[Rfam]
The family of this 139-nucleotide RNA from Oryza meyeriana is "Small nucleolar RNA Z247".
The family's consensus secondary structure was predicted with PFOLD.
The literature on the family includes a 2003 paper in Nucleic Acids Res by Chen et al., "The high diversity of snoRNAs in plants: identification and comparative study of 120 snoRNA genes from Oryza sativa".
Lineage of the source: Eukaryota > Streptophyta > Poales > Oryza > Oryza meyeriana.
It is annotated as a C/D-box small nucleolar RNA.
Gene Ontology terms of the family: nucleolus and RNA processing.
RNA sequence: CCGCUCGAAGAUGAAGACCUAGUCUAGUAUAUCAUCACUGGAUUAGAUGAGGAUUUCAGCCUGGUGGUUUCUGCUAUAUGCGCUAGGGUGGAACUGAUCUUAGUUGGGGAACUAUACUCACAACUUCUCAACUUUGAGA
Numbered sequence: 001c002c003g004c005u006c007g008a009a010g011a012u013g014a015a016g017a018c019c020u021a022g023u024c025u026a027g028u029a030u031a032u033c034a035u036c037a038c039u040g041g042a043u044u045a046g047a048u049g050a051g052g053a054u055u056u057c058a059g060c061c062u063g064g065u066g067g068u069u070u071c072u073g074c075u076a077u078a079u080g081c082g083c084u085a086g087g088g089u090g091g092a093a094c095u096g097a098u099c100u101u102a103g104u105u106g107g108g109g110a111a112c113u114a115u116a117c118u119c120a121c122a123a124c125u126u127c128u129c130a131a132c133u134u135u136g137a138g139a
Stems, first nucleotide, its partner, number of pairs: 004138005094107005